[Rfam]
Nucleotides: 119
Base pairs, nucleotide, nucleotide: 002115003114004113005112007110013101014100015099016098017097018096019095035091036090041057042056043055044054045053048083058072059071060070061069062068063067075089076088077087078086
Number, partner (000 for none) and nucleotide at each position: 001000g002115g003114c004113a005112c006000a007110a008000a009000u010000g011000c012000u013101g014100g015099u016098g017097g018096a019095u020000c021000u022000a023000c024000a025000c026000c027000u028000u029000g030000u031000a032000u033000g034000g035091c036090c037000a038000g039000a040000c041057g042056c043055a044054g045053g046000u047000u048083c049000g050000a051000a052000c053045c054044c055043u056042g057041c058072c059071g060070g061069g062068g063067c064000u065000u066000a067063g068062c069061c070060c071059u072058g073000u074000a075089g076088c077087u078086c079000a080000a081000c082000g083048g084000u085000a086078g087077a088076g089075c090036g091035g092000g093000u094000g095019a096018u097017u098016c099015a100014c101013c102000u103000u104000a105000a106000c107000u108000u109000g110007u111000c112005g113004u114003g115002c116000c117000a118000c119000c
This 119-nucleotide RNA sequence from Salmonella enterica belongs to the Rfam family "Y RNA-like". Taxonomically the source falls in Salmonella enterica subsp. enterica serovar Typhimurium (Bacteria, Pseudomonadota, Enterobacteriaceae, Salmonella). From the family's description: In Deinococcus radiodurans Rsr is tethered via Y RNA to the exoribonuclease PNPase and channels single-stranded RNA into the PNPase cavity. Rsr and Y RNA enhance degradation of structured RNAs by PNPase. This role could be conserved, as Rsr and ncRNAs called YrlA and YrlB (Y RNA like) also associate with PNPase in an evolutionary distant bacterium Salmonella Typhimurium. It scores 73 bits against the family's covariance model. The family has 6 seed sequences and 124 matches in Rfam 15.1.